Small nucleolar RNA snoR77: a 127-nucleotide RNA sequence from Jatropha curcas.
It is annotated as an H/ACA-box small nucleolar RNA.
The source organism's lineage runs through Eukaryota, Tracheophyta, Malpighiales, Crotonoideae and Jatropha.
RNA sequence: AGGCAACCUCUUUGCAGAAAAUUCAAUGGCGAAGAAGGUGUUAAACUGCUCGUAUAUUGAAUGGCUUUUGCUCUUCAGACUUGCUGAGAUUUUUCAUUGAAGCCGGUCUAGUAAGCCUUGGCACAUU
Numbered sequence: 001a002g003g004c005a006a007c008c009u010c011u012u013u014g015c016a017g018a019a020a021a022u023u024c025a026a027u028g029g030c031g032a033a034g035a036a037g038g039u040g041u042u043a044a045a046c047u048g049c050u051c052g053u054a055u056a057u058u059g060a061a062u063g064g065c066u067u068u069u070g071c072u073c074u075u076c077a078g079a080c081u082u083g084c085u086g087a088g089a090u091u092u093u094u095c096a097u098u099g100a101a102g103c104c105g106g107u108c109u110a111g112u113a114a115g116c117c118u119u120g121g122c123a124c125a126u127u
Stems, first nucleotide, its partner, number of pairs: 002042004007038002009035007017027001065121002070116003077109005083103003088095002
The family's consensus secondary structure was predicted with WAR.